[Rfam]
RNA sequence: AGUGUGAUUAAACACGGACUCUCAUGUUUUUACUUUAGUAACUGAGUGUCCGCCAGUGUUACACGAG
Numbered sequence: 001a002g003u004g005u006g007a008u009u010a011a012a013c014a015c016g017g018a019c020u021c022u023c024a025u026g027u028u029u030u031u032a033c034u035u036u037a038g039u040a041a042c043u044g045a046g047u048g049u050c051c052g053c054c055a056g057u058g059u060u061a062c063a064c065g066a067g
Stems, first nucleotide, its partner, number of pairs: 002064007016051004022045002026042003

Shown here is a 67-nucleotide sequence from Angomonas deanei, a member of the family "Trypanosomatid snoRNA TB9Cs3H1".
A reference for the family is Liang et al. (2005), "A genome-wide analysis of C/D and H/ACA-like small nucleolar RNAs in Trypanosoma brucei reveals a trypanosome-specific pattern of rRNA modification", RNA.
It scores 59 bits against the family's covariance model.
Pairs were carried over by alignment from the consensus structure, which was predicted with WAR.
By type it is an H/ACA-box small nucleolar RNA.